[Rfam]
RNA sequence: GAUGGCUGUGAUGACUUGGAAAUAUUCAAGCUCAACAGACUAAAUCACAUGUCUAUCUCUGAAAAUUGAGAUUGAUCUGUAUGCCGAUUAUCCCGCUAAACUGAGCCAUC
Dot-bracket structure: ((((((..................................................................................................))))))
RNA: Small nucleolar RNA Z107/R87
Organism: Panicum virgatum